[Rfam]
RNA sequence: UUCGUUAAUAUUAACCAUAAAUUAAGCUUUAUAGGUGAUUACUGUGCAUAUCCAGUUCGUCUGGAUCUGACUGAAUGGUUCGGCCAUUCUGUUUGACGCCUCCCUGUUUAAACUCCUGAGAGCCGCUUUUGCGGCUCUUUUUUU
Numbered sequence: 001u002u003c004g005u006u007a008a009u010a011u012u013a014a015c016c017a018u019a020a021a022u023u024a025a026g027c028u029u030u031a032u033a034g035g036u037g038a039u040u041a042c043u044g045u046g047c048a049u050a051u052c053c054a055g056u057u058c059g060u061c062u063g064g065a066u067c068u069g070a071c072u073g074a075a076u077g078g079u080u081c082g083g084c085c086a087u088u089c090u091g092u093u094u095g096a097c098g099c100c101u102c103c104c105u106g107u108u109u110a111a112a113c114u115c116c117u118g119a120g121a122g123c124c125g126c127u128u129u130u131g132c133g134g135c136u137c138u139u140u141u142u143u144u
Stems, first nucleotide, its partner, number of pairs: 001046001003044002005017001019039001023038001025036001027034002050066004073089006095108004118139009
RNA: Alphaproteobacterial sRNA BjrC1505
Organism: Nitratireductor aestuarii